[Rfam]
Shown here is a 119-nucleotide RNA sequence from Collichthys lucidus, a member of the family "Small nucleolar RNA SNORA26".
RNA sequence: UUGCCCACCUUGGACCAACAAUUGCCCUUGGUGAUAACACAGGGGGGCAGAGUAGCUCUCUCAUAAACCUGUAGUGAAGGCACAAAUCCUCACUGCGGAUCCUGUCGGGAGAAACAUCU
Numbered sequence: 001u002u003g004c005c006c007a008c009c010u011u012g013g014a015c016c017a018a019c020a021a022u023u024g025c026c027c028u029u030g031g032u033g034a035u036a037a038c039a040c041a042g043g044g045g046g047g048c049a050g051a052g053u054a055g056c057u058c059u060c061u062c063a064u065a066a067a068c069c070u071g072u073a074g075u076g077a078a079g080g081c082a083c084a085a086a087u088c089c090u091c092a093c094u095g096c097g098g099a100u101c102c103u104g105u106c107g108g109g110a111g112a113a114a115c116a117u118c119u
Stems, first nucleotide, its partner, number of pairs: 002049005008043003017035001019033001058111005069098007077090001079089001082087001
Dot-bracket structure: .(((((.(((......(.(.............).).....))).)))))........(((((......(((((((.(.(..(....).)).)))))))........)))))........

The match comes from Rfam's covariance-model search (54 bits). Lineage of the source: Eukaryota > Chordata > Eupercaria > Sciaenidae > Collichthys. For this family Rfam cites "RNomics: an experimental approach that identifies 201 candidates for novel, small, non-messenger RNAs in mouse" (Huttenhofer et al., EMBO J, 2001). The family is grouped with related families in Rfam's "SNORA27 clan". Rfam 15.1 lists 1,943 matches to the family in 640 species.